This 61-nucleotide RNA from Myriophyllum spicatum belongs to the Rfam family "Plastid-psbA-4 3UTR RNA". Its Rfam clan is "Plastid-psbA 3UTR RNA clan". Rfam's curators write: Plastid psbA-4 is a non-coding RNA (ncRNA) present in plastids. It was identified in inverted repeat sequences in the 3 prime untranslate region (3UTR) of photosystem II quinone-binding protein (psbA). The source organism's lineage runs through Eukaryota, Euphyllophyta, Magnoliopsida, Gunneridae and Myriophyllum. The literature on the family includes a 2023 paper in Plant Commun by Richter et al., "Retrograde signaling in plants: A critical review focusing on the GUN pathway and beyond". It is one of the family's seed sequences.
RNA sequence: AAAAUAAAGGAGCAAUACUCCAUUUCUUGUUUUAUCAAGAGUUUUGGUAUUGCUCCUUUAU
Numbered sequence: 001a002a003a004a005u006a007a008a009g010g011a012g013c014a015a016u017a018c019u020c021c022a023u024u025u026c027u028u029g030u031u032u033u034a035u036c037a038a039g040a041g042u043u044u045u046g047g048u049a050u051u052g053c054u055c056c057u058u059u060a061u
Base pairs, nucleotide, nucleotide: 006059007058008057009056010055011054012053013052014051015050016049017048022043024041025040026039027038028037029036